[Rfam]
RNA sequence: AUUUUAGUAUAAAUAUGUCUCAUGCAAUCCUUGAAACAUACUUAUACUAAAA
Numbered sequence: 001a002u003u004u005u006a007g008u009a010u011a012a013a014u015a016u017g018u019c020u021c022a023u024g025c026a027a028u029c030c031u032u033g034a035a036a037c038a039u040a041c042u043u044a045u046a047c048u049a050a051a052a
Stems, first nucleotide, its partner, number of pairs: 006048007014040003018036001020034002022031001